A member of the RNA family "Y RNA" from Pongo abelii, 93 nucleotides long. The family's consensus secondary structure is taken from published work. It is annotated as a non-coding RNA gene. NCBI's taxonomy places the organism under Eukaryota, Boreoeutheria, Catarrhini, Ponginae, Pongo.
Nucleotides: 093
Base pairs, nucleotide, nucleotide: 002089003088004087005086006085007084008083010082011081014080015079016075017074018073019072020071021070033061034060035059037057038056
Number, partner (000 for none) and nucleotide at each position: 001000g002089g003088c004087u005086g006085g007084u008083c009000c010082g011081a012000u013000g014080g015079u016075a017074g018073u019072g020071g021070g022000u023000u024000a025000u026000c027000a028000g029000a030000a031000c032000u033061u034060a035059u036000u037057a038056a039000u040000a041000u042000c043000a044000g045000u046000g047000u048000c049000a050000c051000u052000a053000a054000a055000g056038u057037u058000g059035g060034u061033a062000u063000a064000c065000a066000a067000u068000c069000c070021c071020c072019c073018a074017c075016u076000g077000c078000u079015a080014u081011u082010u083008g084007a085006c086005u087004g088003g089002c090000a091000a092000a093000a